The record is a 284-nucleotide sequence from Papio anubis, which matches "Mason-Pfizer monkey virus packaging signal" in Rfam.
The base pairs follow the family's consensus structure, which was predicted with PFOLD.
Rfam 15.1 lists 2,921 matches to the family in 53 species.
[Rfam]
RNA sequence: UAAAACCUCAGCACGUGGAACCUGGAAACGAGGGAUUCCGUGAGGAAGAGGACACGAAAGAGCGAUUCGACCGUCAAGGUGGAAACUAAACUCCUCGAUCACCGUGGGAACCUGCGGCGUCAGAAUGAGAAAGGGGUGAGUGGCUGGCGUCCGAAAUGGGACAAGAAUUAAGUCAACAUCAAAUCUAUGUAGGACAAUUAAAAGGCGCUUUAAAAUACGAGGAGUAAAGGUUAAAGGUAAUGAUUUGUUUUAAAUUUUUUGAUUUAUGCAAAGACAACAUGGUU
Number, nucleotide and partner (000 for none) at each position: 001u000002a000003a000004a000005a000006c034007c033008u000009c032010a000011g000012c000013a000014c000015g029016u028017g000018g000019a000020a000021c000022c000023u000024g000025g000026a000027a000028a016029c015030g000031a000032g009033g007034g006035a000036u000037u000038c000039c051040g000041u049042g000043a000044g000045g000046a000047a000048g000049a041050g000051g039052a000053c000054a000055c000056g000057a000058a000059a000060g000061a000062g000063c000064g000065a000066u000067u000068c000069g000070a000071c000072c000073g000074u000075c000076a000077a000078g000079g000080u000081g000082g000083a000084a000085a000086c000087u000088a000089a000090a000091c000092u136093c135094c134095u133096c000097g000098a000099u129100c127101a000102c000103c119104g118105u117106g000107g115108g000109a000110a000111c000112c000113u000114g000115c107116g000117g105118c104119g103120u000121c000122a000123g000124a000125a000126u000127g100128a000129g099130a000131a000132a000133g095134g094135g093136g092137u000138g000139a000140g000141u000142g000143g000144c000145u164146g000147g162148c000149g000150u160151c159152c158153g157154a000155a000156a000157u153158g152159g151160g150161a000162c147163a000164a145165g000166a000167a000168u000169u212170a211171a210172g208173u207174c000175a000176a000177c000178a000179u000180c000181a000182a000183a000184u000185c000186u000187a000188u000189g000190u000191a000192g000193g000194a000195c000196a000197a000198u000199u000200a000201a000202a000203a000204g000205g000206c000207g173208c172209u000210u171211u170212a169213a000214a000215a000216u000217a000218c261219g260220a259221g258222g257223a256224g255225u254226a000227a000228a246229g245230g244231u243232u242233a241234a000235a000236g000237g000238u000239a000240a000241u233242g232243a231244u230245u229246u228247g000248u000249u000250u000251u000252a000253a000254a225255u224256u223257u222258u221259u220260u219261g218262a000263u000264u000265u000266a000267u000268g000269c000270a000271a000272a000273g284274a283275c282276a000277a000278c000279a000280u000281g000282g275283u274284u273
Rfam's curators write: This family represents a group of sequences that are related to the Mason-Pfizer monkey virus (MPMV) packaging signal. The packaging signal is located in the 5' UTR and is required for specific RNA encapsidation.
Taxonomically the source falls in Papio (Eukaryota, Sarcopterygii, Mammalia, Theria).